[Rfam]
RNA sequence: UGAAGUGCUUCAACACUAGAAUGUGUGGCUGCCAUGGAUUGGUGGGAACCAGGCUCGCCCAGGGUCAGUGCUACCAGCGUUCAGU
Numbered sequence: 001u002g003a004a005g006u007g008c009u010u011c012a013a014c015a016c017u018a019g020a021a022u023g024u025g026u027g028g029c030u031g032c033c034a035u036g037g038a039u040u041g042g043u044g045g046g047a048a049c050c051a052g053g054c055u056c057g058c059c060c061a062g063g064g065u066c067a068g069u070g071c072u073a074c075c076a077g078c079g080u081u082c083a084g085u
Base pairs, nucleotide, nucleotide: 001083002082003081004080006079007078008077009076012072014070015069016068017067019066022063024061025060027059028058029057031054032053033052037050039048040047
Shown here is an 85-nucleotide RNA sequence from Pipistrellus kuhlii, a member of the family "mir-9215 microRNA precursor family".
NCBI's taxonomy places the organism under Eukaryota, Eumetazoa, Chordata, Boreoeutheria, Pipistrellus.
Pairs were carried over by alignment from the consensus structure, which was predicted with RNAalifold.